[Rfam]
RNA: Bacterial RNase P class A
RNA sequence: GCGGAAGGCUGGAUGACCGCGGUCGCCGGGGCAACCCGAAGGUCGAGGAAAGUCCGGACUCCAGGAAGAUACGGUGCCGGGUAACACCCGGGCGGGGCAACCCGACGGACAGCGCCACAGAAAUGAAACCGCCGGUCGCGAAAGGUCGGGCAACCGAAACCACGCGGCAGGUAAGGGUGAAACGGUGGGGUAAGAGCCCACCGCGCCGCUGGCAACAGGGGCGGCACGGCAAGCCCCACCGGGAGCAAUGCCAAAUAGGGACCGCGCGCGCCGCCGCAAGGCGGGGCAGGGCCGCUUCUGCCCCAGCAGGUCCGGGUUGGCAGCUACAGCCGCGCAGGCAACUGCGCGGUCAGAGGAAUGGUCAUCGAUGGGGGCAACCCCGGGACAGAAUCCGGCUUACAGGCCUUCCGCGCGU
Dot-bracket structure: ((((((((((((((((((.(((((..((........))..)))))....[[[.[[[[[((((.....[[..((((((((((.....)))))(((((....)))).)((...(((((............(((((.(((((........................))))).)))..)).......((((((.......))))))(((((.(((....))).)))).)..)))..)))))))))))))...((((......(((((.........................((((...]]..)))).....))))).....)))).......((((((((....))))))))..........)))))))........................]]]]]]]].).))))))))))....